[Rfam]
RNA sequence: GGGGGCGAUACGGGUUCGACGGCAAGAGCAGGCAAAGGGAAGCAUGCCGUAGAAGGCCACUACGUAAAAAACCAAAACAAAACAAUUCCCGAACGCGAAAUCGCUCUCGCUGCUUAAUUAACGCAGCGACGUCCUACCCGGUUUGCCUGUAGGCUGGGAUAGGGCGUAAGACAUACAGGAUAGGAGGUUGCCAACCUCCCCUGAGGUAACCUCCGAAACUCUACGGGGAUAGCUUCUCUCCUCCUGCCUGUGGGAAAGAGAGAAGCGAAACUCAAACACAGGCUAAGCAUGUAGAUGCCCUACUGCUUAGGCUCUUGUCGGACGGGGGUUCGAUUCCCCCCGCCUCCACUC
Numbered sequence: 001g002g003g004g005g006c007g008a009u010a011c012g013g014g015u016u017c018g019a020c021g022g023c024a025a026g027a028g029c030a031g032g033c034a035a036a037g038g039g040a041a042g043c044a045u046g047c048c049g050u051a052g053a054a055g056g057c058c059a060c061u062a063c064g065u066a067a068a069a070a071a072c073c074a075a076a077a078c079a080a081a082a083c084a085a086u087u088c089c090c091g092a093a094c095g096c097g098a099a100a101u102c103g104c105u106c107u108c109g110c111u112g113c114u115u116a117a118u119u120a121a122c123g124c125a126g127c128g129a130c131g132u133c134c135u136a137c138c139c140g141g142u143u144u145g146c147c148u149g150u151a152g153g154c155u156g157g158g159a160u161a162g163g164g165c166g167u168a169a170g171a172c173a174u175a176c177a178g179g180a181u182a183g184g185a186g187g188u189u190g191c192c193a194a195c196c197u198c199c200c201c202u203g204a205g206g207u208a209a210c211c212u213c214c215g216a217a218a219c220u221c222u223a224c225g226g227g228g229a230u231a232g233c234u235u236c237u238c239u240c241c242u243c244c245u246g247c248c249u250g251u252g253g254g255a256a257a258g259a260g261a262g263a264a265g266c267g268a269a270a271c272u273c274a275a276a277c278a279c280a281g282g283c284u285a286a287g288c289a290u291g292u293a294g295a296u297g298c299c300c301u302a303c304u305g306c307u308u309a310g311g312c313u314c315u316u317g318u319c320g321g322a323c324g325g326g327g328g329u330u331c332g333a334u335u336c337c338c339c340c341c342g343c344c345u346c347c348a349c350u351c
Stems, first nucleotide, its partner, number of pairs: 001347007020320010031307004036301004041296001043291005048064005055073002107129007130166005137158002140155003146179006183214006197229005232266004237260001242255003246283003251278002324340005
This 351-nucleotide RNA sequence from Sulfurihydrogenibium azorense belongs to the Rfam family "transfer-messenger RNA". It is annotated as a non-coding RNA gene. Its Rfam clan is "tRNA clan". Pairs were carried over by alignment from the consensus structure, which is taken from published work.